[Rfam]
RNA: Selenocysteine insertion sequence 1
Organism: Labeo rohita
RNA sequence: GUGGCUUUUAUGAAGGCAGGUGCGGAAACUAUGAACUAGUGGUGCCUGUUUGAUGUUAGGCCAC
Numbered sequence: 001g002u003g004g005c006u007u008u009u010a011u012g013a014a015g016g017c018a019g020g021u022g023c024g025g026a027a028a029c030u031a032u033g034a035a036c037u038a039g040u041g042g043u044g045c046c047u048g049u050u051u052g053a054u055g056u057u058a059g060g061c062c063a064c
Stems, first nucleotide, its partner, number of pairs: 001064005015050009029039003
Dot-bracket structure: (((((.........(((((((((.....(((.....)))..))))))))).........)))))